[Rfam]
RNA sequence: GAGAGAAGGAUUCUAGGAAUCGAUAUUCAGAUGCAGGUUUCAAACUGCCUAUUGGUGCUGCAGUCAGAAACUGUGGUAUUGAGCGUAAUUAAAAAAGGUUGAUGAAUCAAUCAAGU
Numbered sequence: 001g002a003g004a005g006a007a008g009g010a011u012u013c014u015a016g017g018a019a020u021c022g023a024u025a026u027u028c029a030g031a032u033g034c035a036g037g038u039u040u041c042a043a044a045c046u047g048c049c050u051a052u053u054g055g056u057g058c059u060g061c062a063g064u065c066a067g068a069a070a071c072u073g074u075g076g077u078a079u080u081g082a083g084c085g086u087a088a089u090u091a092a093a094a095a096a097g098g099u100u101g102a103u104g105a106a107u108c109a110a111u112c113a114a115g116u
Stems, first nucleotide, its partner, number of pairs: 002014004016041006024033003046115001051089002054080002057077003061073004097112006
A member of the RNA family "Group II catalytic intron D1-D4-2" from Acetivibrio straminisolvens, 116 nucleotides long. A reference for the family is Bonen and Vogel (2001), "The ins and outs of group II introns", Trends Genet. Pairs were carried over by alignment from the consensus structure. NCBI's taxonomy places the organism under Bacteria, Bacillati, Acetivibrionales, Acetivibrionaceae, Acetivibrio straminisolvens.